[Rfam]
RNA sequence: AGCUGAUGCAUAUGGCGGUCUCCUCCCAGUUCCGCCGCAGCAGCUGUUCCCCUCUGGAGUCAAAGAUCUCCACACUUUAUGGGCCGCGGUUACUCCGUCGGCCCUUUCUU
Numbered sequence: 001a002g003c004u005g006a007u008g009c010a011u012a013u014g015g016c017g018g019u020c021u022c023c024u025c026c027c028a029g030u031u032c033c034g035c036c037g038c039a040g041c042a043g044c045u046g047u048u049c050c051c052c053u054c055u056g057g058a059g060u061c062a063a064a065g066a067u068c069u070c071c072a073c074a075c076u077u078u079a080u081g082g083g084c085c086g087c088g089g090u091u092a093c094u095c096c097g098u099c100g101g102c103c104c105u106u107u108c109u110u
Stems, first nucleotide, its partner, number of pairs: 001045005007039003015035004055072005060066001081104005086098004
The family of this 110-nucleotide RNA sequence is "Alphaproteobacterial ar15".
Gene Ontology term of the family: protein binding.
The family is grouped with related families in Rfam's "suhB sRNA clan".